Shown here is a 199-nucleotide sequence from Paenibacillus contaminans, a member of the family "c-di-AMP riboswitch aptamer (ydaO/yuaA leader)".
The match comes from Rfam's covariance-model search (91 bits).
From the family's description: This family represents a conserved RNA structure found upstream of the ydaO and yuaA genes in Bacillus subtilis and related genes in other bacteria.
RNA sequence: AUUACUGAAUCGCUUAAUUUCCUUGCCAGACCAGGAAAACGGGGGAACCAAUAAAGCGGUGCGCAAGCGGUGUGAGAGCCGUUGCUGCAUCGUUUGGGGUGAAUUCCGAAUCGAAGAGCCAUGGAUUUUCGGUUCGGAUAGGGCGACUCUCACUGCCCGAAUCCGUCAGCUAACCUCGUAAGCGUUGGGACGCAGCUAA
Numbered sequence: 001a002u003u004a005c006u007g008a009a010u011c012g013c014u015u016a017a018u019u020u021c022c023u024u025g026c027c028a029g030a031c032c033a034g035g036a037a038a039a040c041g042g043g044g045g046a047a048c049c050a051a052u053a054a055a056g057c058g059g060u061g062c063g064c065a066a067g068c069g070g071u072g073u074g075a076g077a078g079c080c081g082u083u084g085c086u087g088c089a090u091c092g093u094u095u096g097g098g099g100u101g102a103a104u105u106c107c108g109a110a111u112c113g114a115a116g117a118g119c120c121a122u123g124g125a126u127u128u129u130c131g132g133u134u135c136g137g138a139u140a141g142g143g144c145g146a147c148u149c150u151c152a153c154u155g156c157c158c159g160a161a162u163c164c165g166u167c168a169g170c171u172a173a174c175c176u177c178g179u180a181a182g183c184g185u186u187g188g189g190a191c192g193c194a195g196c197u198a199a
Stems, first nucleotide, its partner, number of pairs: 011184004018038006039179006049096002097164003105138013141158004